[Rfam]
RNA: Small nucleolar RNA SNORD17
Organism: Danionella cerebrum
RNA sequence: GUGUCAUGAUGAACCAGUUUAUCCAUUCGCGGAGCGCUGCCUGUUCUGUCCCCAUGCGGCUCUGUGGCCCGUUCUGGGCCACAGAGUUUUUUUGACCUAGUCUGGUACUGCAAUGUUGGUCCAGUGUUCUACUGGAGCAGCAUUUGUGGUGUCUGACUGGCCAGUGCAGGGGGAUAGAGUGGCUCUGGCUAAGAUGAGCAAACUUUGCUGAA
Numbered sequence: 001g002u003g004u005c006a007u008g009a010u011g012a013a014c015c016a017g018u019u020u021a022u023c024c025a026u027u028c029g030c031g032g033a034g035c036g037c038u039g040c041c042u043g044u045u046c047u048g049u050c051c052c053c054a055u056g057c058g059g060c061u062c063u064g065u066g067g068c069c070c071g072u073u074c075u076g077g078g079c080c081a082c083a084g085a086g087u088u089u090u091u092u093u094g095a096c097c098u099a100g101u102c103u104g105g106u107a108c109u110g111c112a113a114u115g116u117u118g119g120u121c122c123a124g125u126g127u128u129c130u131a132c133u134g135g136a137g138c139a140g141c142a143u144u145u146g147u148g149g150u151g152u153c154u155g156a157c158u159g160g161c162c163a164g165u166g167c168a169g170g171g172g173g174a175u176a177g178a179g180u181g182g183c184u185c186u187g188g189c190u191a192a193g194a195u196g197a198g199c200a201a202a203c204u205u206u207g208c209u210g211a212a
Stems, first nucleotide, its partner, number of pairs: 026212004030207002034203001039184001041182002044179008052170001053166002055163002058088013097160006110147002112144001115141004120136007186201001188199003